This 47-nucleotide RNA from Streptomyces sp. NRRL F-5053 belongs to the Rfam family "L17-Actino-Proteobacteria ribosomal protein leader". Rfam's curators put it in the seed alignment. The family's consensus secondary structure is taken from published work. The literature on the family includes a 2020 paper in BMC Microbiol by Eckert and Weinberg, "Discovery of 20 novel ribosomal leader candidates in bacteria and archaea". Lineage of the source: Bacteria > Bacillati > Actinomycetes > Kitasatosporales > Streptomyces.
RNA sequence: CCUGGUACGGCCGGGGCUGCCGCCGGUUCCUGAUACGGCCGGCGCAG
Numbered sequence: 001c002c003u004g005g006u007a008c009g010g011c012c013g014g015g016g017c018u019g020c021c022g023c024c025g026g027u028u029c030c031u032g033a034u035a036c037g038g039c040c041g042g043c044g045c046a047g
Base pairs, nucleotide, nucleotide: 001015002014003013004012005011017047018046019045021044022043023042024041025040026039027038